[Rfam]
RNA sequence: AUGUGGUACAUGUGAAAUUUGAAGUUAAUCAAUUUUUUAGUAUGUUUUUAUAUAUUUUAAGUUGUUAAUUAUUUUUAUAAGUCACAAUAAUUAACAAGUUAAUAUAAAAAAAAACUUAUAAAAAAUUCAUUGACUUUUGAAAUUUCAUUUGUAUCACAUAA
Numbered sequence: 001a002u003g004u005g006g007u008a009c010a011u012g013u014g015a016a017a018u019u020u021g022a023a024g025u026u027a028a029u030c031a032a033u034u035u036u037u038u039a040g041u042a043u044g045u046u047u048u049u050a051u052a053u054a055u056u057u058u059a060a061g062u063u064g065u066u067a068a069u070u071a072u073u074u075u076u077a078u079a080a081g082u083c084a085c086a087a088u089a090a091u092u093a094a095c096a097a098g099u100u101a102a103u104a105u106a107a108a109a110a111a112a113a114a115c116u117u118a119u120a121a122a123a124a125a126u127u128c129a130u131u132g133a134c135u136u137u138u139g140a141a142a143u144u145u146c147a148u149u150u151g152u153a154u155c156a157c158a159u160a161a
Stems, first nucleotide, its partner, number of pairs: 001159010012148009022138003025133005031127009044115006053106003057102004062097003066093008076084001077082001
RNA: MIR7996 microRNA precursor family